[Rfam]
RNA sequence: CCCCUUUUUUUCUCUGACGCGAGUGGUUAUCUAACAGAUGUCUCUUCGGGGACUAUGGACAUAAACGCGCUCGUAAUAAGCGGAUCGGACCCGGGGGCGGUACCCGGCGUCUCCACCAAACACCCUUCAUUUGGGGGUCAUGGGGACGAAAUAGGAUCGACGAACGUCUAAAGGGGUUUGCUUUGUCUCGGCAGUCUGCCACCGUUAUCGGCGAAUUUUGUACAAUUGCAAAUGACAAUCGUGCUCCGGCAAUGGCAGUAGCAGCGUAAGCUGUUAAUGUCGCCGAAACUAACUCCUUGGGUUUAGCGACCUAAGGCGGGGUUCGCAGGUACCUGGCAACAGAAACCUGCACU
Numbered sequence: 001c002c003c004c005u006u007u008u009u010u011u012c013u014c015u016g017a018c019g020c021g022a023g024u025g026g027u028u029a030u031c032u033a034a035c036a037g038a039u040g041u042c043u044c045u046u047c048g049g050g051g052a053c054u055a056u057g058g059a060c061a062u063a064a065a066c067g068c069g070c071u072c073g074u075a076a077u078a079a080g081c082g083g084a085u086c087g088g089a090c091c092c093g094g095g096g097g098c099g100g101u102a103c104c105c106g107g108c109g110u111c112u113c114c115a116c117c118a119a120a121c122a123c124c125c126u127u128c129a130u131u132u133g134g135g136g137g138u139c140a141u142g143g144g145g146a147c148g149a150a151a152u153a154g155g156a157u158c159g160a161c162g163a164a165c166g167u168c169u170a171a172a173g174g175g176g177u178u179u180g181c182u183u184u185g186u187c188u189c190g191g192c193a194g195u196c197u198g199c200c201a202c203c204g205u206u207a208u209c210g211g212c213g214a215a216u217u218u219u220g221u222a223c224a225a226u227u228g229c230a231a232a233u234g235a236c237a238a239u240c241g242u243g244c245u246c247c248g249g250c251a252a253u254g255g256c257a258g259u260a261g262c263a264g265c266g267u268a269a270g271c272u273g274u275u276a277a278u279g280u281c282g283c284c285g286a287a288a289c290u291a292a293c294u295c296c297u298u299g300g301g302u303u304u305a306g307c308g309a310c311c312u313a314a315g316g317c318g319g320g321g322u323u324c325g326c327a328g329g330u331a332c333c334u335g336g337c338a339a340c341a342g343a344a345a346c347c348u349g350c351a352c353u
Base pairs, nucleotide, nucleotide: 040053041052042051043050044049057188058187059186060185061184067181068180069177070176071175072174081166082165085163086162087161091107092106093105094104095103108148109147110146111145112144113143114142189204190203191202195214196213198212199211200210319334320333321332322331325350326349327348328347329346330345
Background:
This 353-nucleotide RNA sequence from Shimia thalassica belongs to the Rfam family "Alphaproteobacteria transfer-messenger RNA". Bacterial tmRNA, also known as 10Sa RNA or SsrA, is named for its dual tRNA and mRNA-like properties. Its role is to liberate the mRNA from a stalled ribosome. To accomplish this part of the tmRNA is used as a reading frame that ends in a translation stop signal. The base pairs follow the family's consensus structure, which is taken from published work.